LOOT RNA: a 119-nucleotide RNA sequence.
It is one of the family's seed sequences.
Rfam classes the family as a small RNA.
The family's consensus secondary structure is taken from published work.

RNA sequence: UGCCUAACCCUUAUGUUCUCAUAAGGUAUGGUAAAAAAACCAGUGAAACAUAAUUAACUCUUCGUCAGAGCCGUGUUUCACUGGUCAUAAUUCGAAAGGAUUAUGGGGGCGUAAGCCCU
Number, nucleotide and partner (000 for none) at each position: 001u033002g032003c031004c030005u000006a000007a000008c000009c026010c025011u024012u023013a022014u021015g020016u000017u000018c000019u000020c015021a014022u013023a012024a011025g010026g009027u000028a000029u000030g004031g003032u002033a001034a000035a000036a000037a000038a000039a000040c084041c083042a082043g081044u080045g079046a078047a077048a076049c075050a074051u000052a000053a000054u000055u000056a000057a000058c070059u069060c068061u000062u000063c000064g000065u000066c000067a000068g060069a059070g058071c000072c000073g000074u050075g049076u048077u047078u046079c045080a044081c043082u042083g041084g040085u000086c105087a104088u103089a102090a101091u100092u099093c098094g000095a000096a000097a000098g093099g092100a091101u090102u089103a088104u087105g086106g119107g118108g117109g116110c115111g000112u000113a000114a000115g110116c109117c108118c107119u106